This 173-nucleotide RNA sequence from Agrilactobacillus composti belongs to the Rfam family "Group II catalytic intron D1-D4-3".
The family has 406 seed sequences and 4,274 matches in Rfam 15.1.
From the family's description: Group II introns are found in rRNA, tRNA and mRNA of organelles in fungi, plants and protists, and also in mRNA in bacteria.
The pairing is the family consensus, mapped onto this sequence.
The source organism's lineage runs through Bacteria, Bacillati, Bacilli, Agrilactobacillus and Agrilactobacillus composti.
It scores 145 bits against the family's covariance model.
RNA sequence: UCCGCCGCGAGGCGGAAUCUGAAGGAAGUCUAAAGCAAAGUGCUGAACCAAUGAAUAAGAAGUGGCUAUAAGGCUGUUUACAGUGGAUAAGGUUGCUUUACAAACUGAAGUCCAAUACUACUCGAAACUGUACGCAGUAAAGUCAAUGGUUGCAUGGCACGAAAGUUAUCGUU
Numbered sequence: 001u002c003c004g005c006c007g008c009g010a011g012g013c014g015g016a017a018u019c020u021g022a023a024g025g026a027a028g029u030c031u032a033a034a035g036c037a038a039a040g041u042g043c044u045g046a047a048c049c050a051a052u053g054a055a056u057a058a059g060a061a062g063u064g065g066c067u068a069u070a071a072g073g074c075u076g077u078u079u080a081c082a083g084u085g086g087a088u089a090a091g092g093u094u095g096c097u098u099u100a101c102a103a104a105c106u107g108a109a110g111u112c113c114a115a116u117a118c119u120a121c122u123c124g125a126a127a128c129u130g131u132a133c134g135c136a137g138u139a140a141a142g143u144c145a146a147u148g149g150u151u152g153c154a155u156g157g158c159a160c161g162a163a164a165g166u167u168a169u170c171g172u173u
Stems, first nucleotide, its partner, number of pairs: 001016006028173001030171001032169001035166002040160006046151005063145005073138003077134001079132005085113004091106004